[Rfam]
RNA sequence: AUGCAUCUACUUGAAAGACCUGAAGCAGUUACUGUCUGCUUCUAAGGUUUCCAUUACAGAUGCAAGAACAAAGUUUCCUUGUGCUGUCUCUCUGAUUGCGGCAGCCAUGACUGAAUCGAGGAAUACAGAG
Numbered sequence: 001a002u003g004c005a006u007c008u009a010c011u012u013g014a015a016a017g018a019c020c021u022g023a024a025g026c027a028g029u030u031a032c033u034g035u036c037u038g039c040u041u042c043u044a045a046g047g048u049u050u051c052c053a054u055u056a057c058a059g060a061u062g063c064a065a066g067a068a069c070a071a072a073g074u075u076u077c078c079u080u081g082u083g084c085u086g087u088c089u090c091u092c093u094g095a096u097u098g099c100g101g102c103a104g105c106c107a108u109g110a111c112u113g114a115a116u117c118g119a120g121g122a123a124u125a126c127a128g129a130g
Stems, first nucleotide, its partner, number of pairs: 002064007012053002016050005023041006076122006084113001087110002092104003096100001
The record is a 130-nucleotide sequence from Nannospalax galili, which matches "Small nucleolar RNA SNORA31" in Rfam. It scores 64 bits against the family's covariance model. Pairs were carried over by alignment from the consensus structure, which was predicted with RNAalifold. About the family: ACA31 (SNORA31) belongs to the H/ACA class of snoRNAs which are thought to guide the sites of modification of uridines to pseudouridines. ACA31 is predicted to guide the pseudouridylation of U3713 in 28S rRNA and U218 in 18S rRNA. This family includes the mouse homologue snoMBI-161.